RNA: U4 spliceosomal RNA
RNA sequence: AGCUUUGCGCAAUGGCAGUAUCGUAGCCAAUGAGGUUUAUCCGAGGCGCGAUUAUUGCUAAUUGAAAAGUUUUCCCAAUACUCUGCCAUCACAACUUGAAAUAUAGUUGGCAUUGGCAAA
Numbered sequence: 001a002g003c004u005u006u007g008c009g010c011a012a013u014g015g016c017a018g019u020a021u022c023g024u025a026g027c028c029a030a031u032g033a034g035g036u037u038u039a040u041c042c043g044a045g046g047c048g049c050g051a052u053u054a055u056u057g058c059u060a061a062u063u064g065a066a067a068a069g070u071u072u073u074c075c076c077a078a079u080a081c082u083c084u085g086c087c088a089u090c091a092c093a094a095c096u097u098g099a100a101a102u103a104u105a106g107u108u109g110g111c112a113u114u115g116g117c118a119a120a
Base pairs, nucleotide, nucleotide: 020052021051022050023049024048026047027046028045034042035041085117086116087115088113089112092109093108094107095106096105